[Rfam]
Shown here is a 142-nucleotide sequence from Aquisphaera giovannonii, a member of the family "Group II catalytic intron D1-D4-4". Pairs were carried over by alignment from the consensus structure. NCBI's taxonomy places the organism under Bacteria, Planctomycetota, Isosphaerales, Isosphaeraceae, Aquisphaera. On this family, see Bonen and Vogel, Trends Genet 2001: "The ins and outs of group II introns".
RNA sequence: CCCUGGGUGGGAAUUCCACCCGGCGACCGGGGGCACUCCGGCUGGUGGCUAUCGGAGCGACGGCGGAGUCGACGAGGCCAUCGGAGCUUUCGAGGCAAACGCACCGCAAGGCGGUGCGGCGAGUCGAUGGGCCGUAACCCGA
Dot-bracket structure: ...................(((((................))))).......((((((((.((....(....)....)).)))....)))))........((((((.....)))))).(((...........))).......
Numbered sequence: 001c002c003c004u005g006g007g008u009g010g011g012a013a014u015u016c017c018a019c020c021c022g023g024c025g026a027c028c029g030g031g032g033g034c035a036c037u038c039c040g041g042c043u044g045g046u047g048g049c050u051a052u053c054g055g056a057g058c059g060a061c062g063g064c065g066g067a068g069u070c071g072a073c074g075a076g077g078c079c080a081u082c083g084g085a086g087c088u089u090u091c092g093a094g095g096c097a098a099a100c101g102c103a104c105c106g107c108a109a110g111g112c113g114g115u116g117c118g119g120c121g122a123g124u125c126g127a128u129g130g131g132c133c134g135u136a137a138c139c140c141g142a
Stems, first nucleotide, its partner, number of pairs: 020045005053092005058083003062079002068073001101117006119135003
Rfam describes the family as follows. Group II introns are found in rRNA, tRNA and mRNA of organelles in fungi, plants and protists, and also in mRNA in bacteria. The match comes from Rfam's covariance-model search (58 bits).